[Rfam]
RNA sequence: UUUCCCAUUUGGCUAUCACAUUAUCUCCUGAUAGAUUUUACUGGCUAUGCUUACGGGAUAGAUGAGAACUGCUGUGAUCUGAAGAGGGAGGAUUUGCCCGUGUCCUCCUCCUGUAUGAAAUGGCUGAACAAGAAAAA
Numbered sequence: 001u002u003u004c005c006c007a008u009u010u011g012g013c014u015a016u017c018a019c020a021u022u023a024u025c026u027c028c029u030g031a032u033a034g035a036u037u038u039u040a041c042u043g044g045c046u047a048u049g050c051u052u053a054c055g056g057g058a059u060a061g062a063u064g065a066g067a068a069c070u071g072c073u074g075u076g077a078u079c080u081g082a083a084g085a086g087g088g089a090g091g092a093u094u095u096g097c098c099c100g101u102g103u104c105c106u107c108c109u110c111c112u113g114u115a116u117g118a119a120a121u122g123g124c125u126g127a128a129c130a131a132g133a134a135a136a137a
Stems, first nucleotide, its partner, number of pairs: 004057003016044003071124004089112004
RNA: Small nucleolar RNA SNORA29
Organism: Capra hircus